[Rfam]
RNA sequence: AAAAUAAAGGAGCAAUACCAAUUUCUUCUUUUAUCAAAAGGGUUGGUAUUGCUCCUUUAU
Numbered sequence: 001a002a003a004a005u006a007a008a009g010g011a012g013c014a015a016u017a018c019c020a021a022u023u024u025c026u027u028c029u030u031u032u033a034u035c036a037a038a039a040g041g042g043u044u045g046g047u048a049u050u051g052c053u054c055c056u057u058u059a060u
Base pairs, nucleotide, nucleotide: 006058007057008056009055010054011053012052013051014050015049016048017047020043023040024039026037027036
RNA: Plastid-psbA-4 3UTR RNA